The family of this 169-nucleotide sequence from Bordetella sp. H567 is "SAH (S-adenosyl-L-homocysteine) riboswitch aptamer".
RNA sequence: ACGCCUGAGGAGCGUUGCGACGGGGAAGGCCGCAGCCAGGCCGAUGCGCAGGACCAUGCGCGCGGCAAUGUGCAUGGCAAGCAUGCACGGUGUGUGUCCCCCGCCAGGCUCAGGCUCAAGUUCGGCUGUCCAUGCAUCGCGUGGCGGCAUGCAACGGCGCUCACCUUUG
Number, nucleotide and partner (000 for none) at each position: 001a000002c000003g115004c114005c113006u112007g111008a110009g000010g000011a000012g000013c000014g000015u000016u000017g000018c000019g000020a000021c103022g102023g101024g100025g099026a000027a000028g000029g000030c000031c000032g000033c000034a000035g000036c000037c000038a000039g000040g000041c000042c000043g000044a000045u000046g000047c000048g000049c000050a000051g000052g000053a000054c000055c000056a000057u000058g000059c000060g000061c000062g000063c000064g000065g000066c000067a000068a000069u000070g000071u000072g000073c000074a000075u000076g000077g000078c000079a000080a000081g000082c000083a000084u000085g000086c000087a000088c000089g000090g000091u000092g000093u000094g000095u000096g000097u000098c000099c025100c024101c023102c022103g021104c000105c000106a000107g000108g000109c000110u008111c007112a006113g005114g004115c003116u000117c000118a000119a000120g000121u000122u000123c000124g000125g000126c000127u000128g000129u000130c000131c000132a000133u000134g000135c000136a000137u000138c000139g000140c000141g000142u000143g000144g000145c000146g000147g000148c000149a000150u000151g000152c000153a000154a000155c000156g000157g000158c000159g000160c000161u000162c000163a000164c000165c000166u000167u000168u000169g000

Description:
NCBI's taxonomy places the organism under Bacteria, Pseudomonadota, Betaproteobacteria, Burkholderiales, Bordetella. The base pairs follow the family's consensus structure, which is taken from published work. For this family Rfam cites "Riboswitches that sense S-adenosylhomocysteine and activate genes involved in coenzyme recycling" (Wang et al., Mol Cell, 2008).